[Rfam]
RNA sequence: UCGGUCCCGGUUCACGUCCAUCUUGGGCGACCCGGGCC
Numbered sequence: 001u002c003g004g005u006c007c008c009g010g011u012u013c014a015c016g017u018c019c020a021u022c023u024u025g026g027g028c029g030a031c032c033c034g035g036g037c038c
Stems, first nucleotide, its partner, number of pairs: 003038003007035004015029006

Rfam assigns this 38-nucleotide RNA sequence from Mycobacterium sp. 155 to the family "L31-Actinobacteria ribosomal protein leader". The family is grouped with related families in Rfam's "Ribosomal Protein L31 Leader clan". The organism belongs to Mycobacterium, within Bacteria. It is one of the family's seed sequences.